[Rfam]
RNA sequence: UGUAAGCAUGCAGCGUACGCUGGCACAGUGCCGAGCGAACGCAGUCCUCUUUACCGAAACGCACCACGCCAAUCAUCUCAUCCUCUUCGAAGCGCGCCAGCGCAUCGGCAAGGCCAGAUUGGACGCUGGCGGGCAGGUCGCACUGGGUGACAUCACCGUUUACAAUCACGGUGACGUUUUCGCCCAAGCGGGUC
Numbered sequence: 001u002g003u004a005a006g007c008a009u010g011c012a013g014c015g016u017a018c019g020c021u022g023g024c025a026c027a028g029u030g031c032c033g034a035g036c037g038a039a040c041g042c043a044g045u046c047c048u049c050u051u052u053a054c055c056g057a058a059a060c061g062c063a064c065c066a067c068g069c070c071a072a073u074c075a076u077c078u079c080a081u082c083c084u085c086u087u088c089g090a091a092g093c094g095c096g097c098c099a100g101c102g103c104a105u106c107g108g109c110a111a112g113g114c115c116a117g118a119u120u121g122g123a124c125g126c127u128g129g130c131g132g133g134c135a136g137g138u139c140g141c142a143c144u145g146g147g148u149g150a151c152a153u154c155a156c157c158g159u160u161u162a163c164a165a166u167c168a169c170g171g172u173g174a175c176g177u178u179u180u181c182g183c184c185c186a187a188g189c190g191g192g193u194c
Stems, first nucleotide, its partner, number of pairs: 002054005008048001014041003018037002061078001063076001066073001083112002087108002093102003113193003117189001119188002122185001125134003137166002140163001144158003171183004